RNA sequence: AACUCAUGACUCGGGCAUGAGUUUAGGAGGUGCUUAAAACGUUCCCAUGCUUCGGAUAUGGUUUCCCCGUCUUGUUGUUGGAAGGAUCGGAUCUCGGCUCUCAAUUU
Numbered sequence: 001a002a003c004u005c006a007u008g009a010c011u012c013g014g015g016c017a018u019g020a021g022u023u024u025a026g027g028a029g030g031u032g033c034u035u036a037a038a039a040c041g042u043u044c045c046c047a048u049g050c051u052u053c054g055g056a057u058a059u060g061g062u063u064u065c066c067c068c069g070u071c072u073u074g075u076u077g078u079u080g081g082a083a084g085g086a087u088c089g090g091a092u093c094u095c096g097g098c099u100c101u102c103a104a105u106u107u
Stems, first nucleotide, its partner, number of pairs: 001107001004104001006101001057074002060071001
Plant small nucleolar RNA R71: a 107-nucleotide RNA from Centaurea solstitialis.
Its family is annotated with nucleolus and RNA processing in the Gene Ontology.
It scores 50 bits against the family's covariance model.
The organism belongs to Centaurea, within Eukaryota.
The base pairs follow the family's consensus structure, which was predicted with PFOLD.
By type it is a C/D-box small nucleolar RNA.